[Rfam]
Nucleotides: 160
Base pairs, nucleotide, nucleotide: 014146015145016144017143018142019141023137024136025135026134027133028132029131030130031129032128033127034126035125
Number, partner (000 for none) and nucleotide at each position: 001000c002000c003000a004000a005000c006000a007000g008000a009000g010000u011000c012000c013000g014146u015145u016144g017143g018142c019141a020000u021000u022000c023137u024136g025135u026134c027133c028132a029131c030130c031129u032128c033127c034126g035125a036000c037000c038000g039000a040000u041000c042000u043000u044000c045000a046000c047000c048000u049000c050000a051000g052000a053000a054000c055000c056000c057000u058000c059000c060000c061000c062000a063000a064000a065000a066000a067000g068000u069000a070000g071000a072000a073000c074000a075000g076000a077000a078000a079000a080000a081000g082000g083000g084000g085000a086000a087000g088000g089000a090000a091000g092000a093000a094000a095000g096000a097000u098000u099000c100000u101000u102000c103000g104000u105000c106000a107000a108000g109000u110000c111000u112000c113000u114000c115000u116000c117000g118000u119000g120000a121000u122000c123000u124000c125035u126034u127033g128032g129031a130030g131029g132028u133027g134026g135025g136024c137023a138000g139000a140000u141019u142018g143017c144016c145015a146014a147000c148000u149000g150000a151000g152000c153000u154000c155000u156000g157000u158000u159000a160000g